[Rfam]
RNA: M-box riboswitch aptamer (ykoK leader)
RNA sequence: UACGCACCUCGUUAGGCGAGGCGUCUGCGUGGACACAGGCCACUGACCUCAAACGUCGAGAGACGCCCCAGGUCAGGACAGCUCACCUCGGAGAAAGGGGUGAGCCCAAGUGGCUUCCCGGCCCCGGCCGGGAAUACGCCGCGCAGUGCUGAAGCUCAACGAGAGAGGUGCCCU
Number, nucleotide and partner (000 for none) at each position: 001u000002a000003c000004g000005c170006a169007c168008c167009u166010c165011g160012u159013u096014a000015g156016g155017c154018g000019a000020g150021g149022c148023g000024u000025c146026u145027g144028c143029g142030u141031g140032g139033a000034c000035a000036c000037a000038g000039g114040c113041c112042a111043c110044u000045g074046a073047c072048c071049u070050c000051a000052a000053a000054c065055g064056u063057c062058g000059a000060g000061a000062g057063a056064c055065g054066c000067c000068c000069c000070a049071g048072g047073u046074c045075a000076g000077g000078a000079c000080a000081g105082c104083u103084c102085a000086c000087c099088u098089c097090g000091g000092a000093g000094a000095a000096a013097g089098g088099g087100g000101u000102g084103a083104g082105c081106c000107c000108a000109a000110g043111u042112g041113g040114c039115u000116u133117c132118c131119c130120g129121g128122c127123c000124c000125c000126g000127g122128c121129c120130g119131g118132g117133a116134a000135u000136a000137c000138g000139c032140c031141g030142c029143g028144c027145a026146g025147u000148g022149c021150u020151g000152a000153a000154g017155c016156u015157c000158a000159a012160c011161g000162a000163g000164a000165g010166a009167g008168g007169u006170g005171c000172c000173c000174u000